[Rfam]
RNA sequence: GGGGAUGUAAAGGUUUCGACGUGCAUAGUUGUAUCAUGAACAGCGAGUCGGGGUUUCAUCUGCCCGCAAAUCGGUGAACUUUUAAAUUAAACGCAAAAGAAAACAAUUUUGCUUUAGCUGCCUAAGCGCAGCUGACGUCUCUUACCGCUAAUCCUGCGUGCGGUCUGUAGGCGACACUCAGCGGGAUACUGCACAAUCGGGCCCUACGGUUGUGUCGGGAACCUACAGGGCUUGGUCGAUGGGGUUUGUCCUUGUACGAACAUCGACUGAAAUCCCUAACAAGGACUGCGCUCGGAGAGGUUCAUGGGGCAGUGUGUACGGACAGGAGUUCGACUCUCCUCAUCUCCACCA
Numbered sequence: 001g002g003g004g005a006u007g008u009a010a011a012g013g014u015u016u017c018g019a020c021g022u023g024c025a026u027a028g029u030u031g032u033a034u035c036a037u038g039a040a041c042a043g044c045g046a047g048u049c050g051g052g053g054u055u056u057c058a059u060c061u062g063c064c065c066g067c068a069a070a071u072c073g074g075u076g077a078a079c080u081u082u083u084a085a086a087u088u089a090a091a092c093g094c095a096a097a098a099g100a101a102a103a104c105a106a107u108u109u110u111g112c113u114u115u116a117g118c119u120g121c122c123u124a125a126g127c128g129c130a131g132c133u134g135a136c137g138u139c140u141c142u143u144a145c146c147g148c149u150a151a152u153c154c155u156g157c158g159u160g161c162g163g164u165c166u167g168u169a170g171g172c173g174a175c176a177c178u179c180a181g182c183g184g185g186a187u188a189c190u191g192c193a194c195a196a197u198c199g200g201g202c203c204c205u206a207c208g209g210u211u212g213u214g215u216c217g218g219g220a221a222c223c224u225a226c227a228g229g230g231c232u233u234g235g236u237c238g239a240u241g242g243g244g245u246u247u248g249u250c251c252u253u254g255u256a257c258g259a260a261c262a263u264c265g266a267c268u269g270a271a272a273u274c275c276c277u278a279a280c281a282a283g284g285a286c287u288g289c290g291c292u293c294g295g296a297g298a299g300g301u302u303c304a305u306g307g308g309g310c311a312g313u314g315u316g317u318a319c320g321g322a323c324a325g326g327a328g329u330u331c332g333a334c335u336c337u338c339c340u341c342a343u344c345u346c347c348a349c350c351a
Stems, first nucleotide, its partner, number of pairs: 001347007020320008029311001031310002034307008044294005049066004055078006114135008136173005144164004152186006189217001191215007200232006234268008244257002248286007324340005
transfer-messenger RNA: a 351-nucleotide RNA from Megasphaera micronuciformis. Its Rfam clan is "tRNA clan". Rfam links the family to the GO term RNA catabolic process. The source organism's lineage runs through Bacteria, Bacillati, Bacillota, Megasphaera and Megasphaera micronuciformis.